[Rfam]
Annotation: This 82-nucleotide sequence from Thioalkalivibrio denitrificans belongs to the Rfam family "c-di-GMP-I-GGC riboswitch aptamer". The family has 40 seed sequences and 1,298 matches in Rfam 15.1.

RNA sequence: CGAGACAAGGGUAAAUCCGCCGUGAGGUGGAGACACAAAGCUUCCGGUCCCGGGCUGUUCCGGGAUAGCGGGGCUGCCGCUG
Numbered sequence: 001c002g003a004g005a006c007a008a009g010g011g012u013a014a015a016u017c018c019g020c021c022g023u024g025a026g027g028u029g030g031a032g033a034c035a036c037a038a039a040g041c042u043u044c045c046g047g048u049c050c051c052g053g054g055c056u057g058u059u060c061c062g063g064g065a066u067a068g069c070g071g072g073g074c075u076g077c078c079g080c081u082g
Stems, first nucleotide, its partner, number of pairs: 001082001004078001011036002016031006034068001039075004044071003047066008